Overview: Rfam assigns this 168-nucleotide sequence from Oscillospiraceae bacterium Marseille-Q3528 to the family "Clostridiales-1 RNA". Pairs were carried over by alignment from the consensus structure, which is taken from published work. Taxonomically the source falls in Oscillospiraceae (Bacteria, Bacillati, Clostridia, Eubacteriales). By type it is a small RNA.
[Rfam]
RNA sequence: UAAUACCAGGGGCAAAAAGUCUAAAUCCACAUGAGCUUGCUCAUAUGUGGAUGAAAGACCUUUUGCCCCGCCCCGAUAUGAGCAUAAAAGUGGGAUGUACAUCCCACGAUAUGCGAAUAUCCGGCAGAAUUGUGAGAGUGCGAAGCACGGAACAAUUCGUUGGUAUUA
Numbered sequence: 001u002a003a004u005a006c007c008a009g010g011g012g013c014a015a016a017a018a019g020u021c022u023a024a025a026u027c028c029a030c031a032u033g034a035g036c037u038u039g040c041u042c043a044u045a046u047g048u049g050g051a052u053g054a055a056a057g058a059c060c061u062u063u064u065g066c067c068c069c070g071c072c073c074c075g076a077u078a079u080g081a082g083c084a085u086a087a088a089a090g091u092g093g094g095a096u097g098u099a100c101a102u103c104c105c106a107c108g109a110u111a112u113g114c115g116a117a118u119a120u121c122c123g124g125c126a127g128a129a130u131u132g133u134g135a136g137a138g139u140g141c142g143a144a145g146c147a148c149g150g151a152a153c154a155a156u157u158c159g160u161u162g163g164u165a166u167u168a
Stems, first nucleotide, its partner, number of pairs: 001168007010068004016062002019059004026051005031044005072124002075121005082114004090107007127158007138148004